[Rfam]
RNA: Small nucleolar RNA SNORA8
RNA sequence: AGCACUGUGUGGUAUCUGCAGCCAGCUGGUCAUCAGCUGGUUUGUUCAAAAGCCAGUGCUAGAAGAAGUCAGCCUCUGGCAUCGUUGGUCUCCAUGACGCUGUGUCUGGAGUCCUGGUAUGGGUGUUGAGACAGCA
Numbered sequence: 001a002g003c004a005c006u007g008u009g010u011g012g013u014a015u016c017u018g019c020a021g022c023c024a025g026c027u028g029g030u031c032a033u034c035a036g037c038u039g040g041u042u043u044g045u046u047c048a049a050a051a052g053c054c055a056g057u058g059c060u061a062g063a064a065g066a067a068g069u070c071a072g073c074c075u076c077u078g079g080c081a082u083c084g085u086u087g088g089u090c091u092c093c094a095u096g097a098c099g100c101u102g103u104g105u106c107u108g109g110a111g112u113c114c115u116g117g118u119a120u121g122g123g124u125g126u127u128g129a130g131a132c133a134g135c136a
Stems, first nucleotide, its partner, number of pairs: 002059006015052001017050001018045004023040001024038005063124001067120001069117004078106005